[Rfam]
RNA sequence: CUCCCUUGUGAUGAUCACUAAAAAUACUUUCGUUCUUCUGAGAUUCAACCCUGCGGAAGAUAUUUUGGAGACCUGAACUGAAGGGAG
Numbered sequence: 001c002u003c004c005c006u007u008g009u010g011a012u013g014a015u016c017a018c019u020a021a022a023a024a025u026a027c028u029u030u031c032g033u034u035c036u037u038c039u040g041a042g043a044u045u046c047a048a049c050c051c052u053g054c055g056g057a058a059g060a061u062a063u064u065u066u067g068g069a070g071a072c073c074u075g076a077a078c079u080g081a082a083g084g085g086a087g
Stems, first nucleotide, its partner, number of pairs: 003085004
A member of the RNA family "Small nucleolar RNA Z159/U59" from Adiantum capillus-veneris, 87 nucleotides long.
Clan: SNORD59 clan.
For this family Rfam cites "The high diversity of snoRNAs in plants: identification and comparative study of 120 snoRNA genes from Oryza sativa" (Chen et al., Nucleic Acids Res, 2003).
The match comes from Rfam's covariance-model search (61 bits).
Rfam links the family to the GO terms RNA processing and nucleolus.
The family has 10 seed sequences and 1,401 matches in Rfam 15.1.